[Rfam]
RNA: int-alpA RNA
Organism: Zoogloea oleivorans
RNA sequence: GCCGCGCCUAGGUCGGCCAACCGAAAACGGGGAAACCUUCGCCCCGCUGGCGCGGCACCUUUUUGAAGGG
Numbered sequence: 001g002c003c004g005c006g007c008c009u010a011g012g013u014c015g016g017c018c019a020a021c022c023g024a025a026a027a028c029g030g031g032g033a034a035a036c037c038u039u040c041g042c043c044c045c046g047c048u049g050g051c052g053c054g055g056c057a058c059c060u061u062u063u064u065g066a067a068g069g070g
Stems, first nucleotide, its partner, number of pairs: 001056008011022003028046005036070004
Dot-bracket structure: ((((((((..(((......))).....(((((...[[[[..)))))..))))))))..........]]]]